[Rfam]
RNA sequence: AAGUUCUGUGAUACACUCCGACUCUGAAUGUUUGCAGUCAGUGCAUUACAGAACUUUGU
Numbered sequence: 001a002a003g004u005u006c007u008g009u010g011a012u013a014c015a016c017u018c019c020g021a022c023u024c025u026g027a028a029u030g031u032u033u034g035c036a037g038u039c040a041g042u043g044c045a046u047u048a049c050a051g052a053a054c055u056u057u058g059u
Base pairs, nucleotide, nucleotide: 001056002055003054004053005052006051007050008049014043015042016041017040020039021038022037023036
RNA: mir-148/mir-152 microRNA precursor family